[Rfam]
RNA sequence: GUCUCUCUUGUUAGACCAGAUUAGAGCCUGGGAGCUCUCUGGCUAGCAAGGAACCCAC
Numbered sequence: 001g002u003c004u005c006u007c008u009u010g011u012u013a014g015a016c017c018a019g020a021u022u023a024g025a026g027c028c029u030g031g032g033a034g035c036u037c038u039c040u041g042g043c044u045a046g047c048a049a050g051g052a053a054c055c056c057a058c
Stems, first nucleotide, its partner, number of pairs: 001054002004052002007050008016042005024037004
Trans-activation response element (TAR): a 58-nucleotide RNA from Lentivirus simimdef. A search with the family's covariance model found it, with a score of 71 bits. Pairs were carried over by alignment from the consensus structure, which is taken from published work. Gene Ontology terms of the family: RISC complex and miRNA-mediated post-transcriptional gene silencing. A reference for the family is Kulinski et al. (2003), "The apical loop of the HIV-1 TAR RNA hairpin is stabilized by a cross-loop base pair", J Biol Chem. From the family's description: This family represents the HIV trans-activation response (TAR) element which is known to be required for the trans-activation of the viral promoter and for virus replication. The family's RNA type in Rfam is microRNA precursor.